A member of the RNA family "Purine riboswitch aptamer" from Clostridium baratii, 98 nucleotides long. Lineage of the source: Bacteria > Bacillota > Clostridia > Eubacteriales > Clostridium baratii. About the family: Riboswitches are metabolite binding domains within certain messenger RNAs that serve as precision sensors for their corresponding targets. Gene Ontology term of the family: purine nucleobase biosynthetic process.
[Rfam]
RNA sequence: UAAUUUAAAAACGAACAAACUCAUAUAUCCCCUGAAUAUGGCAGGGAGUAUCUACCGGAAACCUUAAAUUUCUGACUAUGAGUGAAAUUGAUGUACCG
Numbered sequence: 001u002a003a004u005u006u007a008a009a010a011a012c013g014a015a016c017a018a019a020c021u022c023a024u025a026u027a028u029c030c031c032c033u034g035a036a037u038a039u040g041g042c043a044g045g046g047a048g049u050a051u052c053u054a055c056c057g058g059a060a061a062c063c064u065u066a067a068a069u070u071u072c073u074g075a076c077u078a079u080g081a082g083u084g085a086a087a088u089u090g091a092u093g094u095a096c097c098g
Stems, first nucleotide, its partner, number of pairs: 019083007030046005056074006